[Rfam]
The record is a 159-nucleotide RNA sequence from Pilibacter termitis, which matches "Lysine riboswitch aptamer" in Rfam. It scores 88 bits against the family's covariance model.
RNA sequence: AUAAAAAAUAGAGGUUGCAAAAAAGAAGAGACUUGUGGAGGGGUGCCGUUGAAACAAGUGGAGGCUGAUUUGCCGAAAUAAAGGAAAAGACAUUUUCUUUUAUUGGGGUUAUAGGAAAUACCUAUAAAACUGUCGCAAAAGCGGGAUGCUAUUUUUUCU
Number, nucleotide and partner (000 for none) at each position: 001a000002u000003a000004a000005a000006a154007a153008a152009u151010a150011g149012a000013g000014g000015u000016u000017g073018c072019a071020a070021a069022a000023a000024a066025g065026a000027a000028g000029a000030g000031a059032c058033u057034u056035g055036u054037g000038g000039a000040g000041g000042g000043g000044u000045g000046c000047c000048g000049u000050u000051g000052a000053a000054a036055c035056a034057a033058g032059u031060g000061g000062a000063g000064g000065c025066u024067g000068a000069u021070u020071u019072g018073c017074c000075g000076a000077a104078a103079u102080a101081a100082a099083g098084g097085a096086a095087a094088a093089g000090a000091c000092a000093u088094u087095u086096u085097c084098u083099u082100u081101u080102a079103u078104u077105g131106g130107g000108g000109u127110u126111a125112u124113a123114g122115g121116a000117a000118a000119u000120a000121c115122c114123u113124a112125u111126a110127a109128a000129a000130c106131u105132g000133u144134c143135g142136c141137a000138a000139a000140a000141g136142c135143g134144g133145g000146a000147u000148g000149c011150u010151a009152u008153u007154u006155u000156u000157u000158c000159u000